[Rfam]
RNA sequence: UACAUGUGAUGUAUUUUUCACGAUGGUCUUCUGAUGAAAAAUGAAGACAAGUGCCAAGUGGCUUUUCUGAUGUAGAAAU
Number, nucleotide and partner (000 for none) at each position: 001u074002a073003c072004a071005u000006g000007u000008g000009a000010u000011g000012u000013a000014u000015u000016u000017u000018u000019c000020a000021c000022g000023a000024u000025g000026g000027u000028c000029u000030u000031c000032u000033g000034a000035u000036g000037a000038a000039a000040a000041a000042u000043g000044a000045a000046g000047a000048c000049a000050a000051g000052u000053g000054c000055c000056a000057a000058g000059u000060g000061g000062c000063u000064u000065u000066u000067c000068u000069g000070a000071u004072g003073u002074a001075g000076a000077a000078a000079u000

The family of this 79-nucleotide sequence from Dreissena polymorpha is "Small nucleolar RNA SNORD35". Gene Ontology terms of the family: nucleolus and RNA processing. Rfam 15.1 lists 1,842 matches to the family in 634 species. Pairs were carried over by alignment from the consensus structure, which was predicted with PFOLD. It scores 48 bits against the family's covariance model. The literature on the family includes a 1996 paper in J Mol Biol by Nicoloso et al., "Intron-encoded, antisense small nucleolar RNAs: the characterization of nine novel species points to their direct role as guides for the 2'-O-ribose methylation of rRNAs". It is annotated as a C/D-box small nucleolar RNA.